A member of the RNA family "Archaeal small subunit ribosomal RNA" from Thermoplasmatales archaeon I-plasma, 358 nucleotides of a longer RNA.
Pairs were carried over by alignment from the consensus structure, which is taken from published work.
Gene Ontology terms of the family: ribosome and structural constituent of ribosome.
The organism belongs to Thermoplasmatales, within Archaea.
The family is grouped with related families in Rfam's "SSU clan".
A reference for the family is Yusupov et al. (2001), "Crystal structure of the ribosome at 5.5 A resolution", Science.
[Rfam]
RNA sequence: AGCCUAAAGCGUCCGUAGCCGGUCUUGUAAAUCUCUGGGUAAAUCCUGCCGCUUAACGGUGGGAAUGCUGGAGAGACUGCAAGACUGGGGAUCGGGUGAAGCGAGAGGUACUCCUGGGGUAGGGGUAAAAUCCUGUAAUCCUGGGGGGACGACCGGUGGCGAAAGCGUCUCGCUAGAACGACUCCGACGGUGAGGGACGAAGGCUAGGGGAGCAAACCGGAUUAGAUACCCGGGUAGUCCUAGCUGUAAACGCUGCACACUUGGUGUUGCCCCUUCUUCGGGAAAGGGCAGUGCCGGAGCGAAGGUGUUAAGUGUGCCGCUUGGGGAGUAUGGUCGCAAGGCUGAAACUUAAAGGAAU
Numbered sequence: 001a002g003c004c005u006a007a008a009g010c011g012u013c014c015g016u017a018g019c020c021g022g023u024c025u026u027g028u029a030a031a032u033c034u035c036u037g038g039g040u041a042a043a044u045c046c047u048g049c050c051g052c053u054u055a056a057c058g059g060u061g062g063g064a065a066u067g068c069u070g071g072a073g074a075g076a077c078u079g080c081a082a083g084a085c086u087g088g089g090g091a092u093c094g095g096g097u098g099a100a101g102c103g104a105g106a107g108g109u110a111c112u113c114c115u116g117g118g119g120u121a122g123g124g125g126u127a128a129a130a131u132c133c134u135g136u137a138a139u140c141c142u143g144g145g146g147g148g149a150c151g152a153c154c155g156g157u158g159g160c161g162a163a164a165g166c167g168u169c170u171c172g173c174u175a176g177a178a179c180g181a182c183u184c185c186g187a188c189g190g191u192g193a194g195g196g197a198c199g200a201a202g203g204c205u206a207g208g209g210g211a212g213c214a215a216a217c218c219g220g221a222u223u224a225g226a227u228a229c230c231c232g233g234g235u236a237g238u239c240c241u242a243g244c245u246g247u248a249a250a251c252g253c254u255g256c257a258c259a260c261u262u263g264g265u266g267u268u269g270c271c272c273c274u275u276c277u278u279c280g281g282g283a284a285a286g287g288g289c290a291g292u293g294c295c296g297g298a299g300c301g302a303a304g305g306u307g308u309u310a311a312g313u314g315u316g317c318c319g320c321u322u323g324g325g326g327a328g329u330a331u332g333g334u335c336g337c338a339a340g341g342c343u344g345a346a347a348c349u350u351a352a353a354g355g356a357a358u
Base pairs, nucleotide, nucleotide: 001321002320003319009318011198012197013196014195016192018191019190020189022085023084024083025082026081027080028079030078032074033073034072035071036070037069038068045063046062047061048060049059050058051057089185090184091183092181093180094179097176100174101173102172103171104170105169106168108150111147112146113145114144115143116142117141118140122133123132124131159166160165203244204243205242206241207240208239212238213237217233218232219231220230255317256316257315258314259313260312263295264294265293266292267291268290269289270288271287272286274284275283276282299306300305323350324349325348332343333342334341335340